[Rfam]
RNA: Nuclear RNase P
RNA sequence: CCAAUGUUAAUCUCGUACUUGGGGCACACUAACCGAGCGCCUGGUCGCUCCCAUCGCCCCGGGAAGGUCUGAGGAAAGGUCUCUGUGUCUCUAAAUACAUUCUAGCCGGAUGCUUCCCCAACAGGGAAGGUGGGGGAACCAGAAAAUACAGUUAGGUGCUUAGCUCGGGAGGCCUGGUCCUUGUGGUCAGGAAGAGGCGAAGGCACCGCCACUGUUGGAAACUCCCAUGACCAGCCAUUUUAGCACGAUCUACGAGAUGACUUUGGUCACAACUCAAUUCAGACUAAUCUUUCAUUGG
Numbered sequence: 001c002c003a004a005u006g007u008u009a010a011u012c013u014c015g016u017a018c019u020u021g022g023g024g025c026a027c028a029c030u031a032a033c034c035g036a037g038c039g040c041c042u043g044g045u046c047g048c049u050c051c052c053a054u055c056g057c058c059c060c061g062g063g064a065a066g067g068u069c070u071g072a073g074g075a076a077a078g079g080u081c082u083c084u085g086u087g088u089c090u091c092u093a094a095a096u097a098c099a100u101u102c103u104a105g106c107c108g109g110a111u112g113c114u115u116c117c118c119c120a121a122c123a124g125g126g127a128a129g130g131u132g133g134g135g136g137a138a139c140c141a142g143a144a145a146a147u148a149c150a151g152u153u154a155g156g157u158g159c160u161u162a163g164c165u166c167g168g169g170a171g172g173c174c175u176g177g178u179c180c181u182u183g184u185g186g187u188c189a190g191g192a193a194g195a196g197g198c199g200a201a202g203g204c205a206c207c208g209c210c211a212c213u214g215u216u217g218g219a220a221a222c223u224c225c226c227a228u229g230a231c232c233a234g235c236c237a238u239u240u241u242a243g244c245a246c247g248a249u250c251u252a253c254g255a256g257a258u259g260a261c262u263u264u265g266g267u268c269a270c271a272a273c274u275c276a277a278u279u280c281a282g283a284c285u286a287a288u289c290u291u292u293c294a295u296u297g298g
Stems, first nucleotide, its partner, number of pairs: 001298004009290001012256006021060005035050005040044001069282005078232004098112005113129006130228007149214003258269004